RNA sequence: GGCAGUAACAGCAUAGUGGAGUGAGAAUCUCCACCAUCGUAAGCGUAAGGGUUUCCCGGCAAUGCGUCGUCAGCCGGGAGUUAGUCGAUCCUAAGAUCAACCUCAACAGAGUUGAUCGAACGGGAAACUUGUUAAUAUUCAAGUACCUUAUAGGUGCGUUAUAAUCUAGCAUUCGCUUUCGGAUAGGGCAAGCAGAACCAUCGUUCUGUCUAAGUAUUCAAGAGUUGGGGAGUGUCGCAAUGACGAGAACCAACUCGAGAUGCGAAUGGCUUGGCGUUAGCUGAGUUUGCUCAAGUCCAAGAGACCAUGAAAAAAUGCGUAGUGAGUGGCCUGUAAUGAUCGUACCGAGAUCCGACACAGGUGCGCUGGAUGAGAAGUCUAAGAUGUAU
Numbered sequence: 001g002g003c004a005g006u007a008a009c010a011g012c013a014u015a016g017u018g019g020a021g022u023g024a025g026a027a028u029c030u031c032c033a034c035c036a037u038c039g040u041a042a043g044c045g046u047a048a049g050g051g052u053u054u055c056c057c058g059g060c061a062a063u064g065c066g067u068c069g070u071c072a073g074c075c076g077g078g079a080g081u082u083a084g085u086c087g088a089u090c091c092u093a094a095g096a097u098c099a100a101c102c103u104c105a106a107c108a109g110a111g112u113u114g115a116u117c118g119a120a121c122g123g124g125a126a127a128c129u130u131g132u133u134a135a136u137a138u139u140c141a142a143g144u145a146c147c148u149u150a151u152a153g154g155u156g157c158g159u160u161a162u163a164a165u166c167u168a169g170c171a172u173u174c175g176c177u178u179u180c181g182g183a184u185a186g187g188g189c190a191a192g193c194a195g196a197a198c199c200a201u202c203g204u205u206c207u208g209u210c211u212a213a214g215u216a217u218u219c220a221a222g223a224g225u226u227g228g229g230g231a232g233u234g235u236c237g238c239a240a241u242g243a244c245g246a247g248a249a250c251c252a253a254c255u256c257g258a259g260a261u262g263c264g265a266a267u268g269g270c271u272u273g274g275c276g277u278u279a280g281c282u283g284a285g286u287u288u289g290c291u292c293a294a295g296u297c298c299a300a301g302a303g304a305c306c307a308u309g310a311a312a313a314a315a316u317g318c319g320u321a322g323u324g325a326g327u328g329g330c331c332u333g334u335a336a337u338g339a340u341c342g343u344a345c346c347g348a349g350a351u352c353c354g355a356c357a358c359a360g361g362u363g364c365g366c367u368g369g370a371u372g373a374g375a376a377g378u379c380u381a382a383g384a385u386g387u388a389u
Stems, first nucleotide, its partner, number of pairs: 016034006035386004043366004049346002054079006063072002086342003090123002095117006102109002127144005147338001148336007169318003176303004181298003186292005192209005214263004224254005234244003275280001352361002367381004
Dot-bracket structure: ...............((((((.......))))))((((....((((..((...((((((...((......)).))))))......(((.((...((((((.((....))..))))))....))...(((((........)))))..((((((((..............(((....((((.(((..(((((.(((((........)))))....((((......(((((.....(((.....))).....))))).....))))...........(....).......)))))...))).))))............)))...........))))))).).)))..)).....((......)).))))((((.......)))).))))...
RNA: Archaeal large subunit ribosomal RNA, nucleotides 1388 to 1776